[Rfam]
RNA sequence: CUUUAACAAUCCGGAACAAGCUGAAAAUUGAAACGACAUGUCGUUUUCAUUCCCCGUAACAGGAAUGAAGUCAACGAUAUGGUCGAGUCUCUCAAAUGCUUGCAGCCCAGCUCCUUCGGGACGCUUGUGG
Numbered sequence: 001c002u003u004u005a006a007c008a009a010u011c012c013g014g015a016a017c018a019a020g021c022u023g024a025a026a027a028u029u030g031a032a033a034c035g036a037c038a039u040g041u042c043g044u045u046u047u048c049a050u051u052c053c054c055c056g057u058a059a060c061a062g063g064a065a066u067g068a069a070g071u072c073a074a075c076g077a078u079a080u081g082g083u084c085g086a087g088u089c090u091c092u093c094a095a096a097u098g099c100u101u102g103c104a105g106c107c108c109a110g111c112u113c114c115u116u117c118g119g120g121a122c123g124c125u126u127g128u129g130g
Stems, first nucleotide, its partner, number of pairs: 020103002023101002027097003034085003038080007108129002